Shown here is a 129-nucleotide RNA from Streptomyces uncialis, a member of the family "Streptomyces RNA 3920". The literature on the family includes a 2011 paper in RNA Biol by Vockenhuber et al., "Deep sequencing-based identification of small non-coding RNAs in Streptomyces coelicolor". A search with the family's covariance model found it, with a score of 122 bits. The pairing is the family consensus, mapped onto this sequence. Rfam describes the family as follows. Identified by deep sequencing of transcriptome at the end of exponential growth phase. Sequencing size consistent with northern blot size. Streptomyces specific.

RNA sequence: GAUAGGUCGCUGUCGCUACGGUGAUUGGACACCGACACAGGGUCAACUAGCCUUGGUCGCGCGGUUCUUCGCGCGUUGAACCGCGACCGGCGGUCCGAGCCACGAGGGGGGAGGCUCGGGCCGUCCGCU
Numbered sequence: 001g002a003u004a005g006g007u008c009g010c011u012g013u014c015g016c017u018a019c020g021g022u023g024a025u026u027g028g029a030c031a032c033c034g035a036c037a038c039a040g041g042g043u044c045a046a047c048u049a050g051c052c053u054u055g056g057u058c059g060c061g062c063g064g065u066u067c068u069u070c071g072c073g074c075g076u077u078g079a080a081c082c083g084c085g086a087c088c089g090g091c092g093g094u095c096c097g098a099g100c101c102a103c104g105a106g107g108g109g110g111g112a113g114g115c116u117c118g119g120g121c122c123g124u125c126c127g128c129u
Stems, first nucleotide, its partner, number of pairs: 001014005015051004021032003034044003058075007076086002089125013103110001